Rfam assigns this 154-nucleotide RNA from Candidatus Fukatsuia symbiotica to the family "Group II catalytic intron D1-D4-4". Rfam describes the family as follows. Group II introns are found in rRNA, tRNA and mRNA of organelles in fungi, plants and protists, and also in mRNA in bacteria. Gene Ontology term of the family: Group II intron splicing. A search with the family's covariance model found it, with a score of 68 bits. The pairing is the family consensus, mapped onto this sequence.

[Rfam]
RNA sequence: UUGCAGGUGCGAGUCCUGCUGCAAUAAUUGGUUAGUUUGAUUGCGUAGCUAUGGCGUACAUGUGGAAGGCGACUGAAACAUGGAAGCAACGCCGGAUAAACGUUGCCCCUGACCCAGUCCGUGGGCGCGCGCAAGCACACAGCCCGUAACGAAA
Dot-bracket structure: ...................(((((................))))).......(((((.(((((...((....))...)))))......)))))........(.(((((..............))))))..((.............)).......
Numbered sequence: 001u002u003g004c005a006g007g008u009g010c011g012a013g014u015c016c017u018g019c020u021g022c023a024a025u026a027a028u029u030g031g032u033u034a035g036u037u038u039g040a041u042u043g044c045g046u047a048g049c050u051a052u053g054g055c056g057u058a059c060a061u062g063u064g065g066a067a068g069g070c071g072a073c074u075g076a077a078a079c080a081u082g083g084a085a086g087c088a089a090c091g092c093c094g095g096a097u098a099a100a101c102g103u104u105g106c107c108c109c110u111g112a113c114c115c116a117g118u119c120c121g122u123g124g125g126c127g128c129g130c131g132c133a134a135g136c137a138c139a140c141a142g143c144c145c146g147u148a149a150c151g152a153a154a
Stems, first nucleotide, its partner, number of pairs: 020045005053093005059082005067074002102128001104127005131147002